Record summary
Streptomyces sRNA 4677: a 237-nucleotide RNA. From the family's description: Located in the intergenic region between anti-sigma factor SCO4677 gene and a putative regulatory protein gene SCO4676. scr4677 expression requires the SCO4677 activity and scr4677 sRNA itself seem to affect the levels of the SCO4676-associated transcripts. It scores 126 bits against the family's covariance model.
[Rfam]
RNA sequence: GACGCCGGUGAGGCGGGCGGCAACACCAAAGGAACGGCCUAGAGGUGAAAGGAACCGGACCAAUCCCCACCCCUCCUCCCGCUGCCACUCGGACGGGUGAAGGCCGCCAACUCGGCUUGCGCACAGGCCCGUUGUGCCGUCUACGCUCACGCCCACCAACACCAGACAUGCGACGGCCCUCGCAGGGACGCCAAUCCCAGUGCGAGGGCCUGCCCACCGAGGAAGUAGGGCUUCCCG
Numbered sequence: 001g002a003c004g005c006c007g008g009u010g011a012g013g014c015g016g017g018c019g020g021c022a023a024c025a026c027c028a029a030a031g032g033a034a035c036g037g038c039c040u041a042g043a044g045g046u047g048a049a050a051g052g053a054a055c056c057g058g059a060c061c062a063a064u065c066c067c068c069a070c071c072c073c074u075c076c077u078c079c080c081g082c083u084g085c086c087a088c089u090c091g092g093a094c095g096g097g098u099g100a101a102g103g104c105c106g107c108c109a110a111c112u113c114g115g116c117u118u119g120c121g122c123a124c125a126g127g128c129c130c131g132u133u134g135u136g137c138c139g140u141c142u143a144c145g146c147u148c149a150c151g152c153c154c155a156c157c158a159a160c161a162c163c164a165g166a167c168a169u170g171c172g173a174c175g176g177c178c179c180u181c182g183c184a185g186g187g188a189c190g191c192c193a194a195u196c197c198c199a200g201u202g203c204g205a206g207g208g209c210c211u212g213c214c215c216a217c218c219g220a221g222g223a224a225g226u227a228g229g230g231c232u233u234c235c236c237g
Stems, first nucleotide, its partner, number of pairs: 007218004016079002019076001086099005115152002117149001119147001175210005181204003185198004221235005